[Rfam]
RNA sequence: CGGCAUCGAAAAGGGACGGAAUGAUUCUGUAGACAUUUCCGUAUAAUUUUGGUGCGAUAUAAUAGAGAGGUUACGUGUUACUCUUCUUUACUUUUUUGUAAAUGGAGAGUGUCAAGUACUUCCCACAUUU
Numbered sequence: 001c002g003g004c005a006u007c008g009a010a011a012a013g014g015g016a017c018g019g020a021a022u023g024a025u026u027c028u029g030u031a032g033a034c035a036u037u038u039c040c041g042u043a044u045a046a047u048u049u050u051g052g053u054g055c056g057a058u059a060u061a062a063u064a065g066a067g068a069g070g071u072u073a074c075g076u077g078u079u080a081c082u083c084u085u086c087u088u089u090a091c092u093u094u095u096u097u098g099u100a101a102a103u104g105g106a107g108a109g110u111g112u113c114a115a116g117u118a119c120u121u122c123c124c125a126c127a128u129u130u
Base pairs, nucleotide, nucleotide: 003055004054005053006052007051008050009049010048011047016042017041018040019039020038025032026031065124067122068121069120070119071118076114077113079111080110081109082108083107084106085105086104089100090099091098
This 130-nucleotide RNA from Caenorhabditis bovis belongs to the Rfam family "Caenorhabditis snoRNA ceN80".
Gene Ontology terms of the family: RNA processing and nucleolus.
The organism belongs to Caenorhabditis, within Eukaryota.
The match comes from Rfam's covariance-model search (110 bits).